This 287-nucleotide RNA sequence from Molossus molossus belongs to the Rfam family "Mason-Pfizer monkey virus packaging signal". The family's consensus secondary structure was predicted with PFOLD. The organism belongs to Molossus, within Eukaryota. Its family is annotated with viral genome packaging in the Gene Ontology. The family's RNA type in Rfam is cis-regulatory element. About the family: This family represents a group of sequences that are related to the Mason-Pfizer monkey virus (MPMV) packaging signal. The packaging signal is located in the 5' UTR and is required for specific RNA encapsidation.
RNA sequence: UGGCACCCAAUGUGGGGCUCCAGCACGGGGGAUCCAGUGAAGGACGCCGUUCGAGUGGCCGGCAGAAAGGAAAGCAAAGGAAAAGAAAAUAAAAGAAAAGAGGGAACGACGUGGGAACCUGCUAUGUCUGCACCCCUCAGGUAAGUGAACGGCGAUUAUGGGUCAAGCAUUGAGCCAAGAUAAGAUGUUCGUUGAAGGACUAGGAAAGGCUAUAAAGGCACGAGGAGUAAAGGUAAAAAUUAAGCAUUUGUGUCAGUAUUUUGAUUAUAUUAAAGAAGUUUGCCUUC
Numbered sequence: 001u002g003g004c005a006c007c008c009a010a011u012g013u014g015g016g017g018c019u020c021c022a023g024c025a026c027g028g029g030g031g032a033u034c035c036a037g038u039g040a041a042g043g044a045c046g047c048c049g050u051u052c053g054a055g056u057g058g059c060c061g062g063c064a065g066a067a068a069g070g071a072a073a074g075c076a077a078a079g080g081a082a083a084a085g086a087a088a089a090u091a092a093a094a095g096a097a098a099a100g101a102g103g104g105a106a107c108g109a110c111g112u113g114g115g116a117a118c119c120u121g122c123u124a125u126g127u128c129u130g131c132a133c134c135c136c137u138c139a140g141g142u143a144a145g146u147g148a149a150c151g152g153c154g155a156u157u158a159u160g161g162g163u164c165a166a167g168c169a170u171u172g173a174g175c176c177a178a179g180a181u182a183a184g185a186u187g188u189u190c191g192u193u194g195a196a197g198g199a200c201u202a203g204g205a206a207a208g209g210c211u212a213u214a215a216a217g218g219c220a221c222g223a224g225g226a227g228u229a230a231a232g233g234u235a236a237a238a239a240u241u242a243a244g245c246a247u248u249u250g251u252g253u254c255a256g257u258a259u260u261u262u263g264a265u266u267a268u269a270u271u272a273a274a275g276a277a278g279u280u281u282g283c284c285u286u287c
Base pairs, nucleotide, nucleotide: 006031007030008029012026013025014024100138101137102136103134104133107130110126111125112124113123114122146165147164148163150162153160154159171214172213174210175209176208221263222262223261224260225259227257228256231249232248233247234246273286274285275284
Dot-bracket structure: .....(((...(((.........)))..)))....................................................................(((((..(..(((((.......)))))...)..)).))).......(((.(..((....)).)))).....((.(((...............................)))..))......(((((.((..((((...........))))......)).))))).........(((........))).